[Rfam]
RNA: Glycine riboswitch aptamer
RNA sequence: CGACCACGUGCGGGAGAGACCCCUGGCGGCAGGGGCGCCGAAGGAGCAACCUCCCCGGAAUCUCUCAGGCAUCCGUACCGCACGGACGAG
Numbered sequence: 001c002g003a004c005c006a007c008g009u010g011c012g013g014g015a016g017a018g019a020c021c022c023c024u025g026g027c028g029g030c031a032g033g034g035g036c037g038c039c040g041a042a043g044g045a046g047c048a049a050c051c052u053c054c055c056c057g058g059a060a061u062c063u064c065u066c067a068g069g070c071a072u073c074c075g076u077a078c079c080g081c082a083c084g085g086a087c088g089a090g
Stems, first nucleotide, its partner, number of pairs: 007084007020035004037070003040066002044064003050058002